[Rfam]
RNA sequence: AGAGCUCUGCUGAUUCGAAGCCUUAAGUUCCACUUGAGAGAUUAUUAGAUGAUGUGGGGCUUU
Number, nucleotide and partner (000 for none) at each position: 001a063002g062003a061004g060005c059006u058007c057008u056009g055010c054011u000012g000013a000014u000015u049016c048017g000018a000019a000020g000021c000022c038023u037024u036025a035026a034027g033028u032029u000030c000031c000032a028033c027034u026035u025036g024037a023038g022039a000040g000041a000042u000043u000044a000045u000046u000047a000048g016049a015050u000051g000052a000053u000054g010055u009056g008057g007058g006059g005060c004061u003062u002063u001